The record is a 68-nucleotide RNA sequence from Azorhizobium oxalatiphilum, which matches "Fluoride riboswitch aptamer (crcB RNA motif)" in Rfam.

RNA sequence: CGGCCCGAUGGGGAUGGGAGUUCCCCCGAAACCGCCCGCUCAUCCGGGCUGAUGACUCCUACCGCGAC
Dot-bracket structure: .........[[[[..(((.(((]]]].......((((........))))....)))))).........
Numbered sequence: 001c002g003g004c005c006c007g008a009u010g011g012g013g014a015u016g017g018g019a020g021u022u023c024c025c026c027c028g029a030a031a032c033c034g035c036c037c038g039c040u041c042a043u044c045c046g047g048g049c050u051g052a053u054g055a056c057u058c059c060u061a062c063c064g065c066g067a068c
Stems, first nucleotide, its partner, number of pairs: 010026004016059003020056003034049004
The base pairs follow the family's consensus structure, which is taken from published work. NCBI's taxonomy places the organism under Bacteria, Pseudomonadati, Pseudomonadota, Xanthobacteraceae, Azorhizobium.